RNA sequence: CGCUUAUUUUGCGCAGGCGGAGCUCGACCGCCCGUUCAAACGAUGAACGCCUUUAUCGAUGAACAUCGCAAGGCUUAUGGGGUCGAGCCAAUCUGCAAAGUAUUGCCGAUUGCCCCA
Numbered sequence: 001c002g003c004u005u006a007u008u009u010u011g012c013g014c015a016g017g018c019g020g021a022g023c024u025c026g027a028c029c030g031c032c033c034g035u036u037c038a039a040a041c042g043a044u045g046a047a048c049g050c051c052u053u054u055a056u057c058g059a060u061g062a063a064c065a066u067c068g069c070a071a072g073g074c075u076u077a078u079g080g081g082g083u084c085g086a087g088c089c090a091a092u093c094u095g096c097a098a099a100g101u102a103u104u105g106c107c108g109a110u111u112g113c114c115c116c117a
Stems, first nucleotide, its partner, number of pairs: 016032005078117005089112002092109002095106004
Rfam assigns this 117-nucleotide RNA from Methylomonas methanica to the family "ALIL pseudoknot". The base pairs follow the family's consensus structure, which is taken from published work. The family's RNA type in Rfam is cis-regulatory element.